Rfam assigns this 61-nucleotide RNA from Pristionchus pacificus to the family "mir-8364 microRNA precursor family".
RNA sequence: UCUUCAUUGUCCAUGCUCUCUCACUGGUUAGAGUGACGAGAGAGUGUGUGGAAUGAAGAGA
Numbered sequence: 001u002c003u004u005c006a007u008u009g010u011c012c013a014u015g016c017u018c019u020c021u022c023a024c025u026g027g028u029u030a031g032a033g034u035g036a037c038g039a040g041a042g043a044g045u046g047u048g049u050g051g052a053a054u055g056a057a058g059a060g061a
Stems, first nucleotide, its partner, number of pairs: 001059007010050001012048006019041004
Record summary
The source organism's lineage runs through Eukaryota, Eumetazoa, Protostomia, Diplogasteroidea and Pristionchus.